[Rfam]
RNA sequence: UGCCUGUGACGACUUGCCAUGCUAAUACCGACCCCCCCAGCAGCACUUGGCUCUGCGCUGGCGGGGAAUGAGUUCAACUUGCUCCUCACGGAGCUCUGAGGCAC
Numbered sequence: 001u002g003c004c005u006g007u008g009a010c011g012a013c014u015u016g017c018c019a020u021g022c023u024a025a026u027a028c029c030g031a032c033c034c035c036c037c038c039a040g041c042a043g044c045a046c047u048u049g050g051c052u053c054u055g056c057g058c059u060g061g062c063g064g065g066g067a068a069u070g071a072g073u074u075c076a077a078c079u080u081g082c083u084c085c086u087c088a089c090g091g092a093g094c095u096c097u098g099a100g101g102c103a104c
Stems, first nucleotide, its partner, number of pairs: 001103004041055003
This 104-nucleotide RNA sequence from Gopherus agassizii belongs to the Rfam family "Small nucleolar RNA U6-53/MBII-28". The match comes from Rfam's covariance-model search (56 bits). For this family Rfam cites "RNomics: an experimental approach that identifies 201 candidates for novel, small, non-messenger RNAs in mouse" (Huttenhofer et al., EMBO J, 2001). Pairs were carried over by alignment from the consensus structure. Rfam 15.1 lists 780 matches to the family in 403 species.